[Rfam]
A member of the RNA family "SAM riboswitch aptamer (S box leader)" from Bacillus sp. MUM 13, 107 nucleotides long.

RNA sequence: AACUUAUCUAGAGAGACUGAGGGAAUUGGCCCGAUGAUGUCCGGCAACCUGCAUAGCAUGCAAGGUGCUAACUCCAACAAAAUGUGAUGCAUUUUGGGAGAUAAGGU
Numbered sequence: 001a002a003c004u005u006a007u008c009u010a011g012a013g014a015g016a017c018u019g020a021g022g023g024a025a026u027u028g029g030c031c032c033g034a035u036g037a038u039g040u041c042c043g044g045c046a047a048c049c050u051g052c053a054u055a056g057c058a059u060g061c062a063a064g065g066u067g068c069u070a071a072c073u074c075c076a077a078c079a080a081a082a083u084g085u086g087a088u089g090c091a092u093u094u095u096g097g098g099a100g101a102u103a104a105g106g107u
Stems, first nucleotide, its partner, number of pairs: 001107001003105006013042001015041003021032003026077004043069004048065002050062004073099001078096006
Source information: NCBI's taxonomy places the organism under Bacteria, Bacillati, Bacillota, Bacilli, Bacillus. The match comes from Rfam's covariance-model search (83 bits).